A member of the RNA family "Archaeal small subunit ribosomal RNA" from an uncultured Nitrososphaerota archaeon, 578 nucleotides of a longer RNA. Rfam 15.1 lists 709 matches to the family in 491 species. The base pairs follow the family's consensus structure, which is taken from published work.
RNA sequence: UGGCGGGGGGGCACACAAGGGGUGAAGCCUGCGGUUCAAUUGGAGUCAACGCCCGGAACCUUACCAGGGGUGACAGCAGAAUGACGGUCAGGUUAAAGACCUUACCUGACGCGCUGAGAGGAGGUGCAUGGCCGUCGCCGGCUCGUGCCGUGAGGUGUCCUGUUAAGUCAGGAAACGAGCGAGAUCCCCACCACCAGUUGCCAUUCCGUCCCCUCUAGGGAUGGAAGGCGAACUGGUGGGACUGCCGCCGACAAGGCGGAGGAAGGAGGGGGCUACGGCAGGUCAGUAUGCCCCGAAACCCCUGGGCUACACGCGGGCUGCAAUGGUGGGGACAAUGGGAGCCGAACCCGAAAGGGGGAGGUAAUCCUCAAACCCCACCCCAGUUAUGAUUGAGGGUUGCAACUCACCCUCAUGAAUCUGGAAUCCCUAGUAACCGCGCGUCACCAUCGCGCGGUGAAUACGUCCCUGCCUCUUGCACACACCGCCCGUCGCUCCAUCCGAGUUCGUCUCCAGUGAGGUGGCGUCUCGUUGGCGCCAUCGAACUGGAGGCGGGCAAGGAGGGAGAAGUCGUAACAAGG
Numbered sequence: 001u002g003g004c005g006g007g008g009g010g011g012c013a014c015a016c017a018a019g020g021g022g023u024g025a026a027g028c029c030u031g032c033g034g035u036u037c038a039a040u041u042g043g044a045g046u047c048a049a050c051g052c053c054c055g056g057a058a059c060c061u062u063a064c065c066a067g068g069g070g071u072g073a074c075a076g077c078a079g080a081a082u083g084a085c086g087g088u089c090a091g092g093u094u095a096a097a098g099a100c101c102u103u104a105c106c107u108g109a110c111g112c113g114c115u116g117a118g119a120g121g122a123g124g125u126g127c128a129u130g131g132c133c134g135u136c137g138c139c140g141g142c143u144c145g146u147g148c149c150g151u152g153a154g155g156u157g158u159c160c161u162g163u164u165a166a167g168u169c170a171g172g173a174a175a176c177g178a179g180c181g182a183g184a185u186c187c188c189c190a191c192c193a194c195c196a197g198u199u200g201c202c203a204u205u206c207c208g209u210c211c212c213c214u215c216u217a218g219g220g221a222u223g224g225a226a227g228g229c230g231a232a233c234u235g236g237u238g239g240g241a242c243u244g245c246c247g248c249c250g251a252c253a254a255g256g257c258g259g260a261g262g263a264a265g266g267a268g269g270g271g272g273c274u275a276c277g278g279c280a281g282g283u284c285a286g287u288a289u290g291c292c293c294c295g296a297a298a299c300c301c302c303u304g305g306g307c308u309a310c311a312c313g314c315g316g317g318c319u320g321c322a323a324u325g326g327u328g329g330g331g332a333c334a335a336u337g338g339g340a341g342c343c344g345a346a347c348c349c350g351a352a353a354g355g356g357g358g359a360g361g362u363a364a365u366c367c368u369c370a371a372a373c374c375c376c377a378c379c380c381c382a383g384u385u386a387u388g389a390u391u392g393a394g395g396g397u398u399g400c401a402a403c404u405c406a407c408c409c410u411c412a413u414g415a416a417u418c419u420g421g422a423a424u425c426c427c428u429a430g431u432a433a434c435c436g437c438g439c440g441u442c443a444c445c446a447u448c449g450c451g452c453g454g455u456g457a458a459u460a461c462g463u464c465c466c467u468g469c470c471u472c473u474u475g476c477a478c479a480c481a482c483c484g485c486c487c488g489u490c491g492c493u494c495c496a497u498c499c500g501a502g503u504u505c506g507u508c509u510c511c512a513g514u515g516a517g518g519u520g521g522c523g524u525c526u527c528g529u530u531g532g533c534g535c536c537a538u539c540g541a542a543c544u545g546g547a548g549g550c551g552g553g554c555a556a557g558g559a560g561g562g563a564g565a566a567g568u569c570g571u572a573a574c575a576a577g578g
Base pairs, nucleotide, nucleotide: 001479002478003476004475005474007473008472009471010470011469012468013467015463016462019427020426021425022424023423024321026319027318028317029316030315031314032313033312034310035309040055042053043052064305065304066303067302068301069300070299074116075115076114077113079110086106087105088104090102091101092100120294121293123292124291125290126289129288130287131283132282133281134279135278136277137276141180142179143178144177145176146175147156148155149154159172160171161170162169186271187270188269189268191239192238193237194236195235196234197233201228202227205225206224207223208222209221210220211219242262243261245259246258247257248256249255325379326378327377328376329375330374331373337368338367339366342361343360347356348355349354386417391412392411393410394409395408396407397406433455434454435453436452437451438450439449440448482577484574487570488569490567492564493563494562495561497559498558499557502554503553504552505551506550507549508548509547510546511545512544513543514542517539518538519537520536521535522534523533524532525531